Bacterial RNase P class A: a 372-nucleotide RNA from a Bacteroidaceae bacterium. Pairs were carried over by alignment from the consensus structure, which is taken from published work. Taxonomically the source falls in Bacteroidaceae (Bacteria, Pseudomonadati, Bacteroidota, Bacteroidales).

[Rfam]
RNA sequence: ACAGUUUGCCGGCUUGUCGCGCGUAAUGUUAUUUAUAUUACGGGAGGAAAGUCCGGGCAACAUAAGGCAUCCCGCUUCCUAAUGAGAAGUAGUUCGCGAGAGCUAAUGAGUGCAGAAGAAAACAACCGCCUCACUUCAGAUGUGAGGUAAGGGUGAGAAGGUAGGGUAAGAGCCUACCGGUCGUAUGGUGACAUACGAGCCGUGCAUAUCGGGAGUUGAAAGUCUGCGUAAACCGGCGUUUGAGGGUUGCCUGCUCGAUUUUUACGUCGGAGGGUAGGACGAUACAAUCUGGCGGUGACGUCAGAUGCGGAUAAAUGACAAGCAAUUGUUUAAUUACAAUUACAGAACCCGGCUUAUAGGCAAACUGCUUCU
Numbered sequence: 001a002c003a004g005u006u007u008g009c010c011g012g013c014u015u016g017u018c019g020c021g022c023g024u025a026a027u028g029u030u031a032u033u034u035a036u037a038u039u040a041c042g043g044g045a046g047g048a049a050a051g052u053c054c055g056g057g058c059a060a061c062a063u064a065a066g067g068c069a070u071c072c073c074g075c076u077u078c079c080u081a082a083u084g085a086g087a088a089g090u091a092g093u094u095c096g097c098g099a100g101a102g103c104u105a106a107u108g109a110g111u112g113c114a115g116a117a118g119a120a121a122a123c124a125a126c127c128g129c130c131u132c133a134c135u136u137c138a139g140a141u142g143u144g145a146g147g148u149a150a151g152g153g154u155g156a157g158a159a160g161g162u163a164g165g166g167u168a169a170g171a172g173c174c175u176a177c178c179g180g181u182c183g184u185a186u187g188g189u190g191a192c193a194u195a196c197g198a199g200c201c202g203u204g205c206a207u208a209u210c211g212g213g214a215g216u217u218g219a220a221a222g223u224c225u226g227c228g229u230a231a232a233c234c235g236g237c238g239u240u241u242g243a244g245g246g247u248u249g250c251c252u253g254c255u256c257g258a259u260u261u262u263u264a265c266g267u268c269g270g271a272g273g274g275u276a277g278g279a280c281g282a283u284a285c286a287a288u289c290u291g292g293c294g295g296u297g298a299c300g301u302c303a304g305a306u307g308c309g310g311a312u313a314a315a316u317g318a319c320a321a322g323c324a325a326u327u328g329u330u331u332a333a334u335u336a337c338a339a340u341u342a343c344a345g346a347a348c349c350c351g352g353c354u355u356a357u358a359g360g361c362a363a364a365c366u367g368c369u370u371c372u
Base pairs, nucleotide, nucleotide: 002367003366004365005364006363007362008361009360010359011357012323013322014321015320016319017318018317020044022042023041024040025039026038027037028036049355050354051353053352054351055350056349057348058218059217060216061215065252066251067250068249070214071213072212073211074210075089076088077087078086090106091104092103093102094101110209111208112205113204114203126152127151128148129147130146131145132144133143134142136140160178161177162176163175164174165173179200181198182197183196184195185194186193187192222280223279224278225277233270234269235268236267237266244256245255246254247253287306288305289304290303291302292301293300294299